Lysine riboswitch aptamer: a 185-nucleotide RNA from Furfurilactobacillus siliginis.
A search with the family's covariance model found it, with a score of 105 bits.

RNA sequence: AUCGAAUGAAGAGGUUGCGACAAUCAUGAGUCGCUUAGCACAGAACAAUCAGGUUUGCUGAGGCUAAGUUAAAGGGUGCGUCGCCGAAAUUUCUGCUUACUGAUUUAAGUGGAGGUUGGGCCGUUGGUUAAUAGCUGACGGACUGUCGCGGCAAAUAGAAACGCCGCGGAGCGCUAUCAACGAUU
Numbered sequence: 001a002u003c004g005a006a007u008g009a010a011g012a013g014g015u016u017g018c019g020a021c022a023a024u025c026a027u028g029a030g031u032c033g034c035u036u037a038g039c040a041c042a043g044a045a046c047a048a049u050c051a052g053g054u055u056u057g058c059u060g061a062g063g064c065u066a067a068g069u070u071a072a073a074g075g076g077u078g079c080g081u082c083g084c085c086g087a088a089a090u091u092u093c094u095g096c097u098u099a100c101u102g103a104u105u106u107a108a109g110u111g112g113a114g115g116u117u118g119g120g121c122c123g124u125u126g127g128u129u130a131a132u133a134g135c136u137g138a139c140g141g142a143c144u145g146u147c148g149c150g151g152c153a154a155a156u157a158g159a160a161a162c163g164c165c166g167c168g169g170a171g172c173g174c175u176a177u178c179a180a181c182g183a184u185u
Base pairs, nucleotide, nucleotide: 007179008178009177010175011174017084018083019082020081021080025076033069034068035067036066037065038064039063088117089116090115091114092113093112094111095110096109097108098107099106118144119143121141122140123139124138125137126136127135128134146169147168148167149166150165151164152163
Riboswitches are metabolite binding domains within certain messenger RNAs that serve as precision sensors for their corresponding targets. Allosteric rearrangement of mRNA structure is mediated by ligand binding, and this results in modulation of gene expression.